[Rfam]
Rfam assigns this 150-nucleotide RNA to the family "RT-3 RNA".
RNA sequence: UAUGUGGAUACGUUGAAGAGUUACGUGUAACUUGGUAUCGUCCACAGCCUGCAAAGCCUCACUAAACUUUCUGAAACAUUGAAAGAAGUGAAAAAUCACGGCGUUGAGCUAUAACGUUUAGUAGGUUCAUUCUUGAAAAAGGUAAGCUCG
Numbered sequence: 001u002a003u004g005u006g007g008a009u010a011c012g013u014u015g016a017a018g019a020g021u022u023a024c025g026u027g028u029a030a031c032u033u034g035g036u037a038u039c040g041u042c043c044a045c046a047g048c049c050u051g052c053a054a055a056g057c058c059u060c061a062c063u064a065a066a067c068u069u070u071c072u073g074a075a076a077c078a079u080u081g082a083a084a085g086a087a088g089u090g091a092a093a094a095a096u097c098a099c100g101g102c103g104u105u106g107a108g109c110u111a112u113a114a115c116g117u118u119u120a121g122u123a124g125g126u127u128c129a130u131u132c133u134u135g136a137a138a139a140a141g142g143u144a145a146g147c148u149c150g
Base pairs, nucleotide, nucleotide: 003046004045005044006043007042008041011040012039014037015036018033019032020031021030022029059091060090061089062088063087069083070082071081105150106149107148108147109146114143115142117140118139119138124133125132
Rfam classes the family as a small RNA.